[Rfam]
RNA sequence: UAAACUUAUAUGCAACACCUUCAUAUAUCCUCGAUAAUAUGGAUCGAAAGUAUCUACCGAAUCACCGUAAAUGAUUUGACUAUGAAGGCAGUUUUUUCGUAU
Numbered sequence: 001u002a003a004a005c006u007u008a009u010a011u012g013c014a015a016c017a018c019c020u021u022c023a024u025a026u027a028u029c030c031u032c033g034a035u036a037a038u039a040u041g042g043a044u045c046g047a048a049a050g051u052a053u054c055u056a057c058c059g060a061a062u063c064a065c066c067g068u069a070a071a072u073g074a075u076u077u078g079a080c081u082a083u084g085a086a087g088g089c090a091g092u093u094u095u096u097u098c099g100u101a102u
Stems, first nucleotide, its partner, number of pairs: 018088008031047005058078007
Shown here is a 102-nucleotide RNA from Peribacillus psychrosaccharolyticus, a member of the family "Purine riboswitch aptamer". A search with the family's covariance model found it, with a score of 88 bits. About the family: Riboswitches are metabolite binding domains within certain messenger RNAs that serve as precision sensors for their corresponding targets. Allosteric rearrangement of mRNA structure is mediated by ligand binding, and this results in modulation of gene expression. Taxonomically the source falls in Peribacillus (Bacteria, Bacilli, Caryophanales, Bacillaceae). The base pairs follow the family's consensus structure, which is taken from published work.